Nucleotides: 090
Base pairs, nucleotide, nucleotide: 010027011026012025013024016081017080018079019078020077061071062070063069
Number, partner (000 for none) and nucleotide at each position: 001000c002000u003000a004000a005000c006000c007000c008000u009000g010027g011026g012025u013024g014000a015000u016081g017080g018079g019078g020077u021000a022000u023000c024013c025012a026011c027010c028000c029000g030000g031000g032000a033000c034000g035000g036000c037000g038000c039000a040000c041000g042000u043000g044000a045000a046000g047000g048000c049000c050000g051000c052000g053000c054000c055000c056000g057000a058000a059000c060000c061071g062070c063069c064000a065000c066000g067000a068000c069063g070062g071061c072000u073000g074000a075000u076000g077020a078019c079018u080017c081016c082000u083000a084000c085000c086000g087000c088000a089000c090000u